[Rfam]
RNA: Small nucleolar RNA snoR26
Organism: Trifolium subterraneum
RNA sequence: UAAGCAUUAAUGAUGAGCAAUUAUAAUUCCUCGCAUUAUGGUUAAUUAGUAGUGAAGAAACUUAUGUGGAAUUAUUACUCUGAGAUACUC
Number, nucleotide and partner (000 for none) at each position: 001u000002a000003a089004g088005c000006a086007u085008u084009a000010a000011u000012g000013a000014u000015g000016a000017g000018c000019a000020a000021u000022u000023a000024u000025a000026a000027u000028u000029c000030c000031u000032c000033g000034c000035a000036u000037u000038a000039u000040g000041g000042u000043u000044a000045a000046u000047u000048a000049g000050u000051a000052g000053u000054g000055a000056a000057g000058a000059a000060a000061c000062u000063u000064a000065u000066g000067u000068g000069g000070a000071a000072u000073u000074a000075u000076u000077a000078c000079u000080c000081u000082g000083a000084g008085a007086u006087a000088c004089u003090c000